[Rfam]
RNA sequence: CUGGAAUGAUGCAACUUAGCCAAAUCAGAAAUGAAUUGUGCUCCUUGAGGCUUCUAAGCUUCAAGUUGAGGUGUGAAUCACUGACGAUAAAUCUUGGGAUUGGUUUAUUUUCUGACCAGG
Numbered sequence: 001c002u003g004g005a006a007u008g009a010u011g012c013a014a015c016u017u018a019g020c021c022a023a024a025u026c027a028g029a030a031a032u033g034a035a036u037u038g039u040g041c042u043c044c045u046u047g048a049g050g051c052u053u054c055u056a057a058g059c060u061u062c063a064a065g066u067u068g069a070g071g072u073g074u075g076a077a078u079c080a081c082u083g084a085c086g087a088u089a090a091a092u093c094u095u096g097g098g099a100u101u102g103g104u105u106u107a108u109u110u111u112c113u114g115a116c117c118a119g120g
Stems, first nucleotide, its partner, number of pairs: 001119004